[Rfam]
RNA sequence: AAGGGGAGCACCGGAUCCUGGACUGUGUCCCUAGGCACCCUGGGUUCCGGGGCCAGUGCCACUGGAAUCCCGCUUCCAGGCCGCGCAGCCCCCU
Numbered sequence: 001a002a003g004g005g006g007a008g009c010a011c012c013g014g015a016u017c018c019u020g021g022a023c024u025g026u027g028u029c030c031c032u033a034g035g036c037a038c039c040c041u042g043g044g045u046u047c048c049g050g051g052g053c054c055a056g057u058g059c060c061a062c063u064g065g066a067a068u069c070c071c072g073c074u075u076c077c078a079g080g081c082c083g084c085g086c087a088g089c090c091c092c093c094u
Stems, first nucleotide, its partner, number of pairs: 001094001003092004011085001012083003017080002020077003024072002027069001028066003034060005042054001044053003

The family of this 94-nucleotide RNA sequence from Vulpes vulpes is "mir-8799 microRNA precursor family". Its family is annotated with miRNA-mediated post-transcriptional gene silencing and RISC complex in the Gene Ontology. The source organism's lineage runs through Eukaryota, Eumetazoa, Vertebrata, Gnathostomata and Vulpes. Its Rfam clan is "mir-8791 microRNA precursor clan". Rfam 15.1 lists 20,638 matches to the family in 5 species.